Streptomyces RNA 5676: a 129-nucleotide sequence.
The match comes from Rfam's covariance-model search (116 bits).
Rfam describes the family as follows. Identified by deep sequencing of transcriptome at the end of exponential growth phase.
By type it is a small RNA.
For this family Rfam cites "Deep sequencing-based identification of small non-coding RNAs in Streptomyces coelicolor" (Vockenhuber et al., RNA Biol, 2011).
Pairs were carried over by alignment from the consensus structure.
RNA sequence: AGAUGAGAGAAACACCCCGCUCACAGGGGACUGUGAGCGGCACCACGGCGGAGCCUCCCCAGCCCCGUCCUGGUAGUGCCUAGCGCACACGGCCGGAGCCCUGAGCUCCGGAACUCCUCACCGAUCGGA
Numbered sequence: 001a002g003a004u005g006a007g008a009g010a011a012a013c014a015c016c017c018c019g020c021u022c023a024c025a026g027g028g029g030a031c032u033g034u035g036a037g038c039g040g041c042a043c044c045a046c047g048g049c050g051g052a053g054c055c056u057c058c059c060c061a062g063c064c065c066c067g068u069c070c071u072g073g074u075a076g077u078g079c080c081u082a083g084c085g086c087a088c089a090c091g092g093c094c095g096g097a098g099c100c101c102u103g104a105g106c107u108c109c110g111g112a113a114c115u116c117c118u119c120a121c122c123g124a125u126c127g128g129a
Stems, first nucleotide, its partner, number of pairs: 004120004009116002017040010042074004047069001049067003053063002076088004093111007121128002